[Rfam]
This 65-nucleotide RNA sequence from Mytilus coruscus belongs to the Rfam family "Selenocysteine insertion sequence 1".
From the family's description: The incorporation of selenocysteine into a protein sequence is directed by an in-frame UGA codon (usually a stop codon) within the coding region of the mRNA. Selenoprotein mRNAs contain a conserved secondary structure in the 3' UTR that is required for the distinction of UGA stop from UGA selenocysteine. The selenocysteine insertion sequence (SECIS) is around 60 nt in length and adopts a hairpin structure which is sufficiently well-defined and conserved to act as a computational screen for selenoprotein genes.

RNA sequence: CGUAUAUUUUAUGAUGGUAUAAUUCUAAACCCGUAACGGAAGGGAUUGUGCUUGAUUUUCAUAUG
Numbered sequence: 001c002g003u004a005u006a007u008u009u010u011a012u013g014a015u016g017g018u019a020u021a022a023u024u025c026u027a028a029a030c031c032c033g034u035a036a037c038g039g040a041a042g043g044g045a046u047u048g049u050g051c052u053u054g055a056u057u058u059u060c061a062u063a064u065g
Stems, first nucleotide, its partner, number of pairs: 001065005016052010031039003